RNA: FMN riboswitch aptamer (RFN element)
RNA sequence: UGAACUGACAAGGGGCAGGGUGUAAUUCCCGACCGGCGGUAACGUGCAUAACGAAGCCCGCGAGCUGUUUCGCUAAAUGAUUUAGUGUAAAUGGCAGAUUUGGUGUAAAACCAAAGCCGACAGUUAAAGUCUGGAUGGGAUAUCAGUUUA
Numbered sequence: 001u002g003a004a005c006u007g008a009c010a011a012g013g014g015g016c017a018g019g020g021u022g023u024a025a026u027u028c029c030c031g032a033c034c035g036g037c038g039g040u041a042a043c044g045u046g047c048a049u050a051a052c053g054a055a056g057c058c059c060g061c062g063a064g065c066u067g068u069u070u071c072g073c074u075a076a077a078u079g080a081u082u083u084a085g086u087g088u089a090a091a092u093g094g095c096a097g098a099u100u101u102g103g104u105g106u107a108a109a110a111c112c113a114a115a116g117c118c119g120a121c122a123g124u125u126a127a128a129g130u131c132u133g134g135a136u137g138g139g140a141u142a143u144c145a146g147u148u149u150a
Base pairs, nucleotide, nucleotide: 003148004147005146006145007144008143010141018030019029020028032130033129034119035118036061037060038059039058056117057116064095065094066093067092068091069090070089099115100114101113102112103111121133122132123131